[Rfam]
Guanidine-II riboswitch aptamer (mini-ykkC): a 45-nucleotide RNA from Pseudomonas sp. HPB0071.
RNA sequence: CGAAGGGGACGACCUCAUCGCCUGAAACUAUCCGGGGACGGCCCC
Numbered sequence: 001c002g003a004a005g006g007g008g009a010c011g012a013c014c015u016c017a018u019c020g021c022c023u024g025a026a027a028c029u030a031u032c033c034g035g036g037g038a039c040g041g042c043c044c045c
Base pairs, nucleotide, nucleotide: 001020002019003018005016006015007014008013034045035044036043037042